Annotation:
mir-2788 microRNA precursor family: a 92-nucleotide RNA sequence from Pararge aegeria. The base pairs follow the family's consensus structure, which was predicted with RNAalifold. The family has 5 seed sequences and 89 matches in Rfam 15.1. The source organism's lineage runs through Eukaryota, Aparaglossata, Lepidoptera, Parargina and Pararge aegeria. Rfam links the family to the GO terms miRNA-mediated post-transcriptional gene silencing and RISC complex.
RNA sequence: AAAAAGGGCCGCCGUAUAGCUGGGGUUUCCUAGCGGUAUGUGCCUCCCAUCAUGCAAUGCCCUUGGAAAUCCCAAACGUGCUGGUGACUAUA
Numbered sequence: 001a002a003a004a005a006g007g008g009c010c011g012c013c014g015u016a017u018a019g020c021u022g023g024g025g026u027u028u029c030c031u032a033g034c035g036g037u038a039u040g041u042g043c044c045u046c047c048c049a050u051c052a053u054g055c056a057a058u059g060c061c062c063u064u065g066g067a068a069a070u071c072c073c074a075a076a077c078g079u080g081c082u083g084g085u086g087a088c089u090a091u092a
Base pairs, nucleotide, nucleotide: 008088010086011085012084013083014081015080016079021074022073023072024071025070026069027068028067029066032063033062035061036060037059038058039057041056042055043054